[Rfam]
RNA sequence: AGGAUAAAGGAAUGUAAGUCACUUUGGAUAAAAGCAUCUGCCAAAUGCCUAAGU
Numbered sequence: 001a002g003g004a005u006a007a008a009g010g011a012a013u014g015u016a017a018g019u020c021a022c023u024u025u026g027g028a029u030a031a032a033a034g035c036a037u038c039u040g041c042c043a044a045a046u047g048c049c050u051a052a053g054u
Stems, first nucleotide, its partner, number of pairs: 013043001014041003022034004

Rfam assigns this 54-nucleotide RNA sequence from Triplophysa tibetana to the family "UnaL2 LINE 3' element". The eel long interspersed element (LINE) UnaL2 and its partner short interspersed element (SINE) share a conserved 3' tail containing a stem-loop that is critical for their retrotransposition. Presumably, the first step of retrotransposition is the recognition of their 3' tails by UnaL2-encoded reverse transcriptase. The solution structure of a 17-nucleotide RNA derived from the 3' tail of UnaL2 was determined by NMR. The family's RNA type in Rfam is cis-regulatory element. The base pairs follow the family's consensus structure, which is taken from published work. A search with the family's covariance model found it, with a score of 56 bits. The source organism's lineage runs through Eukaryota, Bilateria, Deuterostomia, Actinopterygii and Triplophysa.